[Rfam]
RNA sequence: UAUUUUUGCACCCGAAUUAUGAUGGUCAUGAUUCAUACAUAAAAAUCAUUUACAAAAAUAUUAGCAUG
Number, nucleotide and partner (000 for none) at each position: 001u000002a000003u000004u000005u000006u000007u000008g000009c000010a000011c000012c000013c000014g034015a033016a032017u031018u030019a029020u028021g027022a000023u000024g000025g000026u000027c021028a020029u019030g018031a017032u016033u015034c014035a000036u000037a000038c000039a000040u000041a000042a000043a000044a000045a000046u000047c000048a000049u000050u000051u000052a000053c000054a000055a000056a000057a000058a000059u000060a000061u000062u000063a000064g000065c000066a000067u000068g000
RNA: S15-Flavobacteria ribosomal protein leader